mir-276 microRNA precursor family: a 71-nucleotide RNA sequence from Tribolium castaneum.
RNA sequence: UAGACCACUAGCGAGGUAUAGAGUUCCUACGUGAUUUUUCGGCUGUAGGAACUUCAUACCGUGCUCUUGGA
Number, nucleotide and partner (000 for none) at each position: 001u000002a000003g000004a000005c070006c069007a068008c000009u000010a065011g064012c063013g062014a000015g060016g059017u058018a057019u056020a000021g054022a053023g052024u051025u050026c049027c048028u047029a046030c045031g000032u000033g000034a000035u000036u000037u000038u000039u000040c000041g000042g000043c000044u000045g030046u029047a028048g027049g026050a025051a024052c023053u022054u021055c000056a019057u018058a017059c016060c015061g000062u013063g012064c011065u010066c000067u000068u007069g006070g005071a000
For this family Rfam cites "Identification of microRNAs expressed in two mosquito vectors, Aedes albopictus and Culex quinquefasciatus" (Skalsky et al., BMC Genomics, 2010).